[Rfam]
Nucleotides: 130
Stems, first nucleotide, its partner, number of pairs: 002041004007037002010033006065124003070119003077112005083106003088098003
Number, partner (000 for none) and nucleotide at each position: 001000a002041g003040g004039c005038a006000a007037c008036c009000a010033c011032u012031u013030u014029g015028c016000a017000a018000u019000a020000g021000a022000u023000a024000u025000u026000g027000g028015g029014c030013a031012a032011a033010g034000g035000a036008g037007g038005u039004g040003u041002u042000g043000a044000a045000u046000u047000g048000c049000u050000c051000a052000u053000a054000u055000a056000u057000u058000g059000a060000a061000u062000u063000u064000g065124c066123u067122u068000u069000g070119g071118u072117u073000c074000u075000u076000c077112a078111g079110a080109c081108u082000c083106g084105c085104u086000g087000a088098g089097g090096a091000u092000u093000g094000a095000u096090u097089u098088c099000u100000u101000u102000g103000a104085a105084g106083c107000c108081a109080g110079u111078c112077u113000a114000g115000u116000a117072a118071g119070c120000c121000c122067a123066a124065g125000u126000a127000c128000a129000u130000u
A member of the RNA family "Small nucleolar RNA snoR77" from Tripterygium wilfordii, 130 nucleotides long. A search with the family's covariance model found it, with a score of 102 bits. The family has 5 seed sequences and 649 matches in Rfam 15.1. Pairs were carried over by alignment from the consensus structure, which was predicted with WAR. The organism belongs to Tripterygium, within Eukaryota.